[Rfam]
Source information:
Rfam assigns this 273-nucleotide RNA to the family "RAGATH-8 RNA".

RNA sequence: AGCAAUCAAGAAAGCAGGAAAGAACGGGUGAAGCGAUAGGGCUAUGCGUAAGUGACAUGGUGGUCAUGCUGUUGGAUACAGAUGGAGCGUGUGAAGAAUAAACAAGACCCGUCAAAGUAGUUGAAGAAACCAGAAACAAUAAGUCAAUGAAGCAAAGUAUUUGCACUAUUUGAAGAAAGCAAAUAGGGUGAACCAAUCAUCACUUUAAACUUAAAACAAGAAGUUGUUAAGGGGAAGAAUCAACCAAGCGAGAUGACACAGCACUUGAUUGAA
Numbered sequence: 001a002g003c004a005a006u007c008a009a010g011a012a013a014g015c016a017g018g019a020a021a022g023a024a025c026g027g028g029u030g031a032a033g034c035g036a037u038a039g040g041g042c043u044a045u046g047c048g049u050a051a052g053u054g055a056c057a058u059g060g061u062g063g064u065c066a067u068g069c070u071g072u073u074g075g076a077u078a079c080a081g082a083u084g085g086a087g088c089g090u091g092u093g094a095a096g097a098a099u100a101a102a103c104a105a106g107a108c109c110c111g112u113c114a115a116a117g118u119a120g121u122u123g124a125a126g127a128a129a130c131c132a133g134a135a136a137c138a139a140u141a142a143g144u145c146a147a148u149g150a151a152g153c154a155a156a157g158u159a160u161u162u163g164c165a166c167u168a169u170u171u172g173a174a175g176a177a178a179g180c181a182a183a184u185a186g187g188g189u190g191a192a193c194c195a196a197u198c199a200u201c202a203c204u205u206u207a208a209a210c211u212u213a214a215a216a217c218a219a220g221a222a223g224u225u226g227u228u229a230a231g232g233g234g235a236a237g238a239a240u241c242a243a244c245c246a247a248g249c250g251a252g253a254u255g256a257c258a259c260a261g262c263a264c265u266u267g268a269u270u271g272a273a
Stems, first nucleotide, its partner, number of pairs: 003271008024112006044092006053066004069081004120244005130232002135228006141212004149206004158185007187201005

Description
The literature on the family includes a 2015 paper in Nat Chem Biol by Weinberg et al., "New classes of self-cleaving ribozymes revealed by comparative genomics analysis". Its family is annotated with catalytic activity in the Gene Ontology. Rfam classes the family as a small RNA.